The family of this 144-nucleotide sequence from Cavia porcellus is "Small nucleolar RNA SNORA48".
RNA sequence: ACCCCCUGGCAGUGGGCAAAGAGACACCUCACUGGUGGUGGUGUUCUUACAUCAGUCAGGGGCAGAAGAGAUGACAGUCCUUUGUUCAUCCUAGCUUCAUGCCUGGGUUGGUAGCUAAAGCUGUUUCAUGCCUAGGGCACAUAA
Number, nucleotide and partner (000 for none) at each position: 001a000002c000003c062004c061005c060006c059007u058008g057009g000010c000011a000012g000013u054014g053015g052016g000017c000018a000019a048020a047021g046022a000023g042024a000025c040026a039027c038028c037029u000030c000031a000032c000033u000034g000035g000036u000037g028038g027039u026040g025041g000042u023043g000044u000045u000046c021047u020048u019049a000050c000051a000052u015053c014054a013055g000056u000057c008058a007059g006060g005061g004062g003063c000064a000065g000066a000067a000068g000069a000070g000071a000072u000073g000074a000075c000076a000077g000078u000079c000080c000081u000082u000083u139084g138085u137086u136087c135088a000089u000090c000091c000092u000093a000094g000095c000096u000097u000098c000099a000100u130101g000102c000103c000104u128105g127106g126107g000108u000109u123110g122111g000112u120113a000114g000115c000116u000117a000118a000119a000120g112121c000122u110123g109124u000125u000126u106127c105128a104129u000130g100131c000132c000133u000134a000135g087136g086137g085138c084139a083140c000141a000142u000143a000144a000

Rfam links the family to the GO terms nucleolus and RNA processing. Clan: SNORA48 clan. The source organism's lineage runs through Eukaryota, Chordata, Dipnotetrapodomorpha, Tetrapoda and Cavia. The family's consensus secondary structure was predicted with RNAalifold. About the family: The snoRNA ACA 48 has been identified to guide pseudouridylation of the residue U3797 in the 28S rRNA subunit. For this family Rfam cites "Mapping to nucleotide resolution of pseudouridine residues in large subunit ribosomal RNAs from representative eukaryotes, prokaryotes, archaebacteria, mitochondria and chloroplasts" (Ofengand and Bakin, J Mol Biol, 1997). Rfam 15.1 lists 2,109 matches to the family in 150 species.